[Rfam]
RNA sequence: UCCGUGGCGACGUGGAAUCGGUAGGAAGCAGGCGGCAAACUUCCAGCCUGCGGAAUACGAACUUCAUAGGAGGCUAGGUAUUAUUGGGGAAGUUUGCCGCAACAAAAUAAAGCUCUUUCUGCCGAAGGUAAUGCCAAGUAAAUAAAGCAGACGUAUACUGAACGGUACGUAC
Dot-bracket structure: ((((((....))))))...........(.(.(...(.....(..((.(((...........(((.((.....(((.(((((((..(((...((((.........))))....))).............))))))).)))..)).)))))).).)..)......)...).).)
RNA: Group II catalytic intron D1-D4-3
Organism: Geobacillus sp. WCH70